[Rfam]
Nucleotides: 080
Base pairs, nucleotide, nucleotide: 001075002074003073004072006070007069008068022039023038024037026035027033050067051066052065053064054063055062
Number, partner (000 for none) and nucleotide at each position: 001075a002074a003073a004072a005000u006070g007069a008068g009000a010000a011000c012000u013000a014000u015000a016000a017000a018000a019000a020000a021000u022039a023038g024037u025000c026035a027033u028000c029000u030000u031000a032000a033027a034000u035026u036000u037024g038023c039022u040000u041000u042000c043000c044000g045000a046000g047000u048000a049000g050067c051066g052065u053064c054063u055062u056000a057000a058000g059000u060000c061000c062055a063054a064053g065052a066051c067050g068008c069007u070006u071000u072004u073003u074002u075001u076000u077000g078000u079000c080000u
This 80-nucleotide RNA sequence from [Actinobacillus] rossii belongs to the Rfam family "Aggregatibacter sRNA 20". The source organism's lineage runs through Bacteria, Pseudomonadota, Pasteurellales, Pasteurellaceae and [Pasteurella] aerogenes-[Pasteurella] mairii-[Actinobacillus] rossii complex. The pairing is the family consensus, mapped onto this sequence. About the family: Validated by RT-PCR and Northern blot. It is annotated as a small RNA.